[Rfam]
RNA sequence: AAUUCGCACCCACUCAUCGCGUGGCAGGAGCGGGGGAACCAGGUAGGCCGCCGAUCGGAGAAAUCCGGCCGGCUAGGGGUCAAGUCGCGCUCAGCGCGGCCGGGCAUCUCCAGCCCGAACCCGACAGCUCACCUCGCAGGCGCCGGAGAGGAAGCAC
Number, nucleotide and partner (000 for none) at each position: 001a000002a000003u000004u000005c000006g000007c142008a000009c140010c139011c000012a000013c000014u029015c028016a000017u000018c000019g000020c000021g000022u000023g000024g000025c000026a000027g000028g015029a014030g137031c136032g135033g134034g133035g132036g000037a000038a000039c000040c076041a000042g000043g000044u000045a000046g000047g000048c000049c000050g000051c000052c000053g000054a000055u000056c000057g000058g000059a000060g000061a000062a000063a000064u000065c000066c000067g000068g000069c000070c000071g000072g000073c000074u000075a000076g040077g122078g121079g120080u000081c000082a000083a000084g000085u099086c098087g097088c096089g000090c000091u000092c000093a000094g000095c000096g088097c087098g086099g085100c000101c000102g116103g115104g114105c113106a000107u000108c000109u000110c000111c000112a000113g105114c104115c103116c102117g000118a000119a000120c079121c078122c077123g000124a000125c000126a000127g000128c000129u000130c000131a000132c035133c034134u033135c032136g031137c030138a000139g010140g009141c000142g007143c000144c000145g000146g000147a000148g000149a000150g000151g000152a000153a000154g000155c000156a000157c000
c-di-AMP riboswitch aptamer (ydaO/yuaA leader): a 157-nucleotide RNA from Streptomyces sp. Ncost-T10-10d.
About the family: This family represents a conserved RNA structure found upstream of the ydaO and yuaA genes in Bacillus subtilis and related genes in other bacteria. The ydaO/yuaA element is thought to act as a genetic 'off' switch for the ydaO and yuaA genes in its native state. It is believed that the element may be triggered during osmotic shock leading to activation of ydaO, a predicted amino acid transporter gene, and members of the yuaA-yubG operon which code for KtrA and KtrB K+ transporters.